[Rfam]
RNA: Streptomyces RNA 3202
RNA sequence: CCAAGUCCCGUCGCACUCCCCCCGGCGCCGGGACUCUCCCAAGGCCGGGCUUCGGCGUCCCUCCCCCCGGGCGCCGGGGCCCGGCUCUCUG
Numbered sequence: 001c002c003a004a005g006u007c008c009c010g011u012c013g014c015a016c017u018c019c020c021c022c023c024g025g026c027g028c029c030g031g032g033a034c035u036c037u038c039c040c041a042a043g044g045c046c047g048g049g050c051u052u053c054g055g056c057g058u059c060c061c062u063c064c065c066c067c068c069g070g071g072c073g074c075c076g077g078g079g080c081c082c083g084g085c086u087c088u089c090u091g
Base pairs, nucleotide, nucleotide: 005034006033007032008031009030010029012027013026014025043086044085045084046083047082048081049080050079051078053076054075055074056073057072058071059070060069